[Rfam]
RNA sequence: AGUCGUAAGUCUGAGGCCACGGCAGAAGUGCUCGUGGUGCCGCCUGUCAGAUUCCAACAAAUCUGUGAAUCGUGCU
Number, nucleotide and partner (000 for none) at each position: 001a000002g000003u000004c000005g000006u000007a000008a000009g000010u000011c000012u000013g000014a000015g044016g043017c042018c000019a000020c000021g076022g075023c074024a073025g000026a000027a070028g040029u039030g038031c000032u000033c000034g000035u000036g000037g000038u030039g029040c028041c000042g017043c016044c015045u000046g000047u000048c065049a064050g063051a062052u061053u060054c000055c000056a000057a000058c000059a000060a053061a052062u051063c050064u049065g048066u000067g000068a000069a000070u027071c000072g000073u024074g023075c022076u021
Record summary: Rfam assigns this 76-nucleotide RNA sequence from Crocodylus porosus to the family "Mammalian CPEB3 ribozyme". The match comes from Rfam's covariance-model search (36 bits). The base pairs follow the family's consensus structure, which is taken from published work. The organism belongs to Crocodylus, within Eukaryota.